[Rfam]
RNA sequence: GUCCCUGUCAAGCCGAAUCCAUUUUAGGUACGGAGGAACCAGUUAAGGCUAUUCCAGCCAGGGGUGAAUCGCAUAAGGUUCACUUAUGUGUAGGGUUGUCCUUUCCACCCGAACCCGUCAGCUAACUCCGGAGGCGUUAAGAAAGGAGGA
Numbered sequence: 001g002u003c004c005c006u007g008u009c010a011a012g013c014c015g016a017a018u019c020c021a022u023u024u025u026a027g028g029u030a031c032g033g034a035g036g037a038a039c040c041a042g043u044u045a046a047g048g049c050u051a052u053u054c055c056a057g058c059c060a061g062g063g064g065u066g067a068a069u070c071g072c073a074u075a076a077g078g079u080u081c082a083c084u085u086a087u088g089u090g091u092a093g094g095g096u097u098g099u100c101c102u103u104u105c106c107a108c109c110c111g112a113a114c115c116c117g118u119c120a121g122c123u124a125a126c127u128c129c130g131g132a133g134g135c136g137u138u139a140a141g142a143a144a145g146g147a148g149g150a
Base pairs, nucleotide, nucleotide: 012135013134014133019028020027031130032129033128034127035126040061062116063115064114070090071089072088073087074086075085076084077083093110094109095108096107
The record is a 150-nucleotide RNA sequence from Thermincola carboxydiphila, which matches "c-di-AMP riboswitch aptamer (ydaO/yuaA leader)" in Rfam.
It scores 91 bits against the family's covariance model.